[Rfam]
RNA sequence: GUAUGUAUGUAUGUAUGUAUGUAUGUAUGUAUGUAUGUAUGCAUGCAUGCAUGCAUGCAUGCAUGCAUGCAUGCAUGCAUGCAUGCAUGCAUGCAUGCAUGCAUGCAUGCAUGCAUGCAUGCAUGCAUGCAUGCAUGCAUGCAUGCAUGCAUGCAUGCAUGCAUGCAUGUAUGUAUGU
Numbered sequence: 001g002u003a004u005g006u007a008u009g010u011a012u013g014u015a016u017g018u019a020u021g022u023a024u025g026u027a028u029g030u031a032u033g034u035a036u037g038u039a040u041g042c043a044u045g046c047a048u049g050c051a052u053g054c055a056u057g058c059a060u061g062c063a064u065g066c067a068u069g070c071a072u073g074c075a076u077g078c079a080u081g082c083a084u085g086c087a088u089g090c091a092u093g094c095a096u097g098c099a100u101g102c103a104u105g106c107a108u109g110c111a112u113g114c115a116u117g118c119a120u121g122c123a124u125g126c127a128u129g130c131a132u133g134c135a136u137g138c139a140u141g142c143a144u145g146c147a148u149g150c151a152u153g154c155a156u157g158c159a160u161g162c163a164u165g166c167a168u169g170u171a172u173g174u175a176u177g178u
Stems, first nucleotide, its partner, number of pairs: 009022004027038004043068006049058003069110009078097006115140011145162007167174002
RNA: Alfalfa mosaic virus coat protein binding (CPB) RNA
Organism: Candidula unifasciata